[Rfam]
RNA sequence: UCCUUCUUGCAAAAGCGCUCCGCUAAAACCGUGAGACCGGAGCCCUGGGUUCGGGUCUUUUGCGCCGAUGAGAGGCGGAGUGCACCCGAGAAGGAGAACAACCACAACAUCUGCAACGGGACCAGGACCGGACCUCUUUCUUAAUGUCCGCUGUCCCAAGGUGGCUGUGUAACGC
Numbered sequence: 001u002c003c004u005u006c007u008u009g010c011a012a013a014a015g016c017g018c019u020c021c022g023c024u025a026a027a028a029c030c031g032u033g034a035g036a037c038c039g040g041a042g043c044c045c046u047g048g049g050u051u052c053g054g055g056u057c058u059u060u061u062g063c064g065c066c067g068a069u070g071a072g073a074g075g076c077g078g079a080g081u082g083c084a085c086c087c088g089a090g091a092a093g094g095a096g097a098a099c100a101a102c103c104a105c106a107a108c109a110u111c112u113g114c115a116a117c118g119g120g121a122c123c124a125g126g127a128c129c130g131g132a133c134c135u136c137u138u139u140c141u142u143a144a145u146g147u148c149c150g151c152u153g154u155c156c157c158a159a160g161g162u163g164g165c166u167g168u169g170u171a172a173c174g175c
Base pairs, nucleotide, nucleotide: 018080019079021077022076023075024073028069030067031066034058035057037055038054040052041051042050043049044048103169104168105167106166108164111161124154127152129150130149131148132147

Record summary:
Shown here is a 175-nucleotide sequence from Conger conger, a member of the family "Small nucleolar RNA SNORA81". Its family is annotated with nucleolus and RNA processing in the Gene Ontology. On this family, see Gu et al., Nucleic Acids Res 2005: "A novel experimental approach for systematic identification of box H/ACA snoRNAs from eukaryotes". A search with the family's covariance model found it, with a score of 64 bits. It is annotated as an H/ACA-box small nucleolar RNA. Rfam 15.1 lists 1,161 matches to the family in 643 species. NCBI's taxonomy places the organism under Eukaryota, Teleostei, Elopomorpha, Anguilliformes, Conger.